Small nucleolar RNA R11/Z151: an 86-nucleotide sequence from Populus tomentosa. Taxonomically the source falls in Populus (Eukaryota, Euphyllophyta, fabids, Salicaceae). The family's consensus secondary structure was predicted with PFOLD. On this family, see Barneche et al., J Mol Biol 2001: "Identification of 66 box C/D snoRNAs in Arabidopsis thaliana: extensive gene duplications generated multiple isoforms predicting new ribosomal RNA 2'-O-methylation sites".
[Rfam]
RNA sequence: GGGUUUAUGAUGAUAACAUAAUAAUCUUAGCGGAUUUCAGUGAGCUUAUUAAGUCAAUGAUCUGAUUGUUACACACACUGAAGCCC
Number, nucleotide and partner (000 for none) at each position: 001g086002g085003g084004u083005u082006u000007a000008u000009g000010a000011u000012g000013a000014u000015a000016a000017c000018a000019u000020a000021a000022u000023a000024a000025u000026c000027u000028u000029a000030g000031c000032g000033g000034a000035u000036u000037u000038c000039a000040g000041u000042g000043a000044g000045c000046u000047u000048a000049u000050u000051a000052a000053g000054u000055c000056a000057a000058u000059g000060a000061u000062c000063u000064g000065a000066u000067u000068g000069u000070u000071a000072c000073a000074c000075a000076c000077a000078c000079u000080g000081a000082a005083g004084c003085c002086c001